[Rfam]
RNA sequence: CGGCCGGGACGGCCCGACCGGCUACUCCCCCGCCAACGAGGACGACCUCG
Numbered sequence: 001c002g003g004c005c006g007g008g009a010c011g012g013c014c015c016g017a018c019c020g021g022c023u024a025c026u027c028c029c030c031c032g033c034c035a036a037c038g039a040g041g042a043c044g045a046c047c048u049c050g
Stems, first nucleotide, its partner, number of pairs: 001020003005016004037050005